[Rfam]
RNA sequence: UGCUGUGAUGGUGUAAUUUGCGUCUGACUCUGUGGCCAGUGACGGUAUGCCUGCUGUCAUAUGCUGGCACAGAUGACUGGUGAACUUUGAGUCUGAGCA
Numbered sequence: 001u002g003c004u005g006u007g008a009u010g011g012u013g014u015a016a017u018u019u020g021c022g023u024c025u026g027a028c029u030c031u032g033u034g035g036c037c038a039g040u041g042a043c044g045g046u047a048u049g050c051c052u053g054c055u056g057u058c059a060u061a062u063g064c065u066g067g068c069a070c071a072g073a074u075g076a077c078u079g080g081u082g083a084a085c086u087u088u089g090a091g092u093c094u095g096a097g098c099a
Base pairs, nucleotide, nucleotide: 001099002098003097021082022081023080024079030072031071032070033069034068039064040063041058042057043056044055045054
The record is a 99-nucleotide RNA sequence from Gambusia affinis, which matches "Small nucleolar RNA SNORD16" in Rfam. The family's consensus secondary structure was predicted with PFOLD. Rfam classes the family as a C/D-box small nucleolar RNA. Taxonomically the source falls in Gambusia (Eukaryota, Metazoa, Neopterygii, Acanthomorphata).